Shown here is a 53-nucleotide RNA sequence from Protea cynaroides, a member of the family "Plastid-ndhJ 3UTR RNA".
Lineage of the source: Eukaryota > Euphyllophyta > Spermatophyta > Mesangiospermae > Protea.
The literature on the family includes a 2023 paper in Plant Commun by Richter et al., "Retrograde signaling in plants: A critical review focusing on the GUN pathway and beyond".
Rfam's curators write: Plastid ndhJ is a non-coding RNA (ncRNA) present in plastids.
The family's consensus secondary structure was predicted with LocARNA.
RNA sequence: UUAUUAACUUUGUAUCGCGCACAUCACUUAGAUGGCUCUAUACCAUUUGGUAG
Numbered sequence: 001u002u003a004u005u006a007a008c009u010u011u012g013u014a015u016c017g018c019g020c021a022c023a024u025c026a027c028u029u030a031g032a033u034g035g036c037u038c039u040a041u042a043c044c045a046u047u048u049g050g051u052a053g
Base pairs, nucleotide, nucleotide: 019036020035022034023033024032025031